The family of this 174-nucleotide sequence from Erysipelothrix larvae is "Group II catalytic intron D1-D4-3".
Its family is annotated with Group II intron splicing in the Gene Ontology.
A reference for the family is Lehmann and Schmidt (2003), "Group II introns: structure and catalytic versatility of large natural ribozymes", Crit Rev Biochem Mol Biol.
Pairs were carried over by alignment from the consensus structure.
[Rfam]
RNA sequence: AAAUCAGUGAUGAUGGGGUGAAAGAAGUGGGGUAGUGAGUCAUUUGAGCCUACGAAAAGAAACUUGAUAUAAGGCUAAAUGGGGGAUGAGGUUGAUAAACAAACCGAAGUCCAAAAGGUAAACGUAAACCCAAGACAGUAAAUCAAGAGGUUAUGAAUGAUUAAAGAUGAUGAU
Numbered sequence: 001a002a003a004u005c006a007g008u009g010a011u012g013a014u015g016g017g018g019u020g021a022a023a024g025a026a027g028u029g030g031g032g033u034a035g036u037g038a039g040u041c042a043u044u045u046g047a048g049c050c051u052a053c054g055a056a057a058a059g060a061a062a063c064u065u066g067a068u069a070u071a072a073g074g075c076u077a078a079a080u081g082g083g084g085g086a087u088g089a090g091g092u093u094g095a096u097a098a099a100c101a102a103a104c105c106g107a108a109g110u111c112c113a114a115a116a117g118g119u120a121a122a123c124g125u126a127a128a129c130c131c132a133a134g135a136c137a138g139u140a141a142a143u144c145a146a147g148a149g150g151u152u153a154u155g156a157a158u159g160a161u162u163a164a165a166g167a168u169g170a171u172g173a174u
Base pairs, nucleotide, nucleotide: 003014004013005012006011027174028173030171036166040160041159042158043157044156046154047152048151049150050149051148063147064146065145066144067143068142074139075138076137080132081131082130083129084112085111086110087109090105091104092103093102